[Rfam]
RNA sequence: CAGCCACGAGACGAAGUGAAUGGGUUACAAUCCUUCUCCUUCCAAGGAUGAGACCCAGGAAAAUCCCCGGGCCACAUGCCGCAGAGAUGCGGGCUCGGAAACGAGGCACGUCCAAGCCGAGGGUGGUUCUCGCCUUUGGGCGAGGGGCUGAGACACGUGUGGAGCCUCAGCCACCCUUGCUGGGCUAGCUUGGCCGACAUCACAGUUAUUCACUUGGUCCUCCCGGACUAACAGAACGGGGCUUACGAUCACGUGGCA
Numbered sequence: 001c002a003g004c005c006a007c008g009a010g011a012c013g014a015a016g017u018g019a020a021u022g023g024g025u026u027a028c029a030a031u032c033c034u035u036c037u038c039c040u041u042c043c044a045a046g047g048a049u050g051a052g053a054c055c056c057a058g059g060a061a062a063a064u065c066c067c068c069g070g071g072c073c074a075c076a077u078g079c080c081g082c083a084g085a086g087a088u089g090c091g092g093g094c095u096c097g098g099a100a101a102c103g104a105g106g107c108a109c110g111u112c113c114a115a116g117c118c119g120a121g122g123g124u125g126g127u128u129c130u131c132g133c134c135u136u137u138g139g140g141c142g143a144g145g146g147g148c149u150g151a152g153a154c155a156c157g158u159g160u161g162g163a164g165c166c167u168c169a170g171c172c173a174c175c176c177u178u179g180c181u182g183g184g185c186u187a188g189c190u191u192g193g194c195c196g197a198c199a200u201c202a203c204a205g206u207u208a209u210u211c212a213c214u215u216g217g218u219c220c221u222c223c224c225g226g227a228c229u230a231a232c233a234g235a236a237c238g239g240g241g242c243u244u245a246c247g248a249u250c251a252c253g254u255g256g257c258a
Stems, first nucleotide, its partner, number of pairs: 003257006010250002014215006022056004033052003037048003061244002065241004080091004092107001094105004125172004138167004153160002217228004
RNA: RNase MRP
Organism: Handroanthus impetiginosus